This 100-nucleotide sequence from Cellulomonas gilvus belongs to the Rfam family "SAM riboswitch aptamer (S box leader)".
[Rfam]
RNA sequence: CCACCAUCCAGAGCGGCCGAGAGAUCUGGCUCGAUGACGCCGCAGCAACCCGCGGUCCCCCGGGACCGGAGCAGGGUGCUACCGCCAGGACCGAUGGAGG
Numbered sequence: 001c002c003a004c005c006a007u008c009c010a011g012a013g014c015g016g017c018c019g020a021g022a023g024a025u026c027u028g029g030c031u032c033g034a035u036g037a038c039g040c041c042g043c044a045g046c047a048a049c050c051c052g053c054g055g056u057c058c059c060c061c062g063g064g065a066c067c068g069g070a071g072c073a074g075g076g077u078g079c080u081a082c083c084g085c086c087a088g089g090a091c092c093g094a095u096g097g098a099g100g
Base pairs, nucleotide, nucleotide: 001100002099004097005096006095007094008093013043014042015041016040017039021032022031023030026088027087028086029085044080045079046078047077049076050075052072053071084092

About this RNA: Rfam describes the family as follows. The SAM riboswitch is found upstream of a number of genes which code for proteins involved in methionine or cysteine biosynthesis in Gram-positive bacteria.